[Rfam]
The family of this 102-nucleotide RNA from Pan paniscus is "Y RNA". On this family, see Teunissen et al., Nucleic Acids Res 2000: "Conserved features of Y RNAs: a comparison of experimentally derived secondary structures". Rfam classes the family as a non-coding RNA gene. The base pairs follow the family's consensus structure, which is taken from published work. It scores 53 bits against the family's covariance model.
RNA sequence: GGCUAGUCCAAGUGCCAUCGUGUUUACAACUGAUUGAUCACAAGCAAUUGCAAAUUACUUUGUUCCUUCUCCACUCUCACUGCUUCAUUUGACUAGCCUUAA
Numbered sequence: 001g002g003c004u005a006g007u008c009c010a011a012g013u014g015c016c017a018u019c020g021u022g023u024u025u026a027c028a029a030c031u032g033a034u035u036g037a038u039c040a041c042a043a044g045c046a047a048u049u050g051c052a053a054a055u056u057a058c059u060u061u062g063u064u065c066c067u068u069c070u071c072c073a074c075u076c077u078c079a080c081u082g083c084u085u086c087a088u089u090u091g092a093c094u095a096g097c098c099u100u101a102a
Base pairs, nucleotide, nucleotide: 001098002097003096004095005094006093007092008091010090011089014086018079020077022076028064029063030062032060033059